[Rfam]
RNA: Small nucleolar RNA Z247
RNA sequence: CCUCUUGGCGAUGAAGAGAUCCUCGGCUACAUGCUGGCCGGUCUUGGGUCUGAAUUUGAACCUCUAGUGGCCUCCAUCACCGCUCGCGAGGAGCCGAUCAGCCUUGGCAGCUUAUACGCGUUCCUCGCUAACGCCGAGC
Numbered sequence: 001c002c003u004c005u006u007g008g009c010g011a012u013g014a015a016g017a018g019a020u021c022c023u024c025g026g027c028u029a030c031a032u033g034c035u036g037g038c039c040g041g042u043c044u045u046g047g048g049u050c051u052g053a054a055u056u057u058g059a060a061c062c063u064c065u066a067g068u069g070g071c072c073u074c075c076a077u078c079a080c081c082g083c084u085c086g087c088g089a090g091g092a093g094c095c096g097a098u099c100a101g102c103c104u105u106g107g108c109a110g111c112u113u114a115u116a117c118g119c120g121u122u123c124c125u126c127g128c129u130a131a132c133g134c135c136g137a138g139c
Stems, first nucleotide, its partner, number of pairs: 004138005088108001091105003